[Rfam]
RNA sequence: AAAUCAUAUAGAGGCAGCGAUGCGUCAGAGUAGGAGUAGGAGCCGGCAGGCAGUGAAAACUUUGAAAGGUAAUCAUCGCCGAAGGUGAUUUUCCGGCGGGGAAGUUAUCUGGGGUUAUCUGGAAAUACCGAUAACACUCCUUCAUGUAAGAUGAAGAGGAGCUAUUGACACU
Dot-bracket structure: .......((((.....((((((..(.......(((((.....................))))).......)..))))))...((((((((((((....))))))))))))((.((((((.(......).)))))).)).((((((.....)))))).....)))).......
The family of this 172-nucleotide sequence from Erysipelotrichaceae bacterium 5_2_54FAA is "Lysine riboswitch aptamer". A search with the family's covariance model found it, with a score of 65 bits.